Description
The family of this 128-nucleotide RNA sequence from Caenorhabditis elegans is "Caenorhabditis snoRNA ceN101". The family's consensus secondary structure was predicted with RNAalifold. Gene Ontology terms of the family: nucleolus and RNA processing. The family's RNA type in Rfam is H/ACA-box small nucleolar RNA. The family has 4 seed sequences and 19 matches in Rfam 15.1. The source organism's lineage runs through Eukaryota, Ecdysozoa, Chromadorea, Rhabditomorpha and Caenorhabditis. For this family Rfam cites "Systematic identification of non-coding RNA 2,2,7-trimethylguanosine cap structures in Caenorhabditis elegans" (Jia et al., BMC Mol Biol, 2007).

[Rfam]
RNA sequence: AACCUCUCUUAUAAGCCGGGGGACUAGCAUUUUGUUAAGUUCACUAGUAAAAUGAGAGGUAAAGCAUAGAGACAACCAGACACCGAGAAUGUUUUGAUGUUUUCGGUCACUUUGUGUGUCCCACAAAU
Dot-bracket structure: .(((((((......((..(.((((((((.....)))).)))).)..)).....)))))))........(.((((..((((.(((((((((((....)))))))))))...))))..)))).)......